[Rfam]
RNA sequence: GGGAUGUUGUUAUGCACUGGAUUUAAGUUAAGGUUUGGUUAAUCACCAAACCUUUU
Numbered sequence: 001g002g003g004a005u006g007u008u009g010u011u012a013u014g015c016a017c018u019g020g021a022u023u024u025a026a027g028u029u030a031a032g033g034u035u036u037g038g039u040u041a042a043u044c045a046c047c048a049a050a051c052c053u054u055u056u
Stems, first nucleotide, its partner, number of pairs: 002018002005016003030054010

Record summary
Cyanobacteria heterocyst sRNA: a 56-nucleotide sequence from Anabaena sp. FACHB-1237. NCBI's taxonomy places the organism under Bacteria, Bacillati, Cyanobacteriota, Nostocaceae, Anabaena. For this family Rfam cites "Identification of Conserved and Potentially Regulatory Small RNAs in Heterocystous Cyanobacteria" (Brenes-Alvarez et al., Front Microbiol, 2016). The match comes from Rfam's covariance-model search (72 bits).